[Rfam]
small nucleolar RNA snoR127: a 50-nucleotide sequence from Microthlaspi erraticum. The source organism's lineage runs through Eukaryota, Tracheophyta, Pentapetalae, Brassicales and Microthlaspi. Rfam links the family to the GO terms RNA processing and nucleolus.
RNA sequence: CUGGAAUGAUGAUGCUUAGCCAAAUCAGAUAUGAUUUUUGCCUGACCAGA
Numbered sequence: 001c002u003g004g005a006a007u008g009a010u011g012a013u014g015c016u017u018a019g020c021c022a023a024a025u026c027a028g029a030u031a032u033g034a035u036u037u038u039u040g041c042c043u044g045a046c047c048a049g050a
Stems, first nucleotide, its partner, number of pairs: 001049004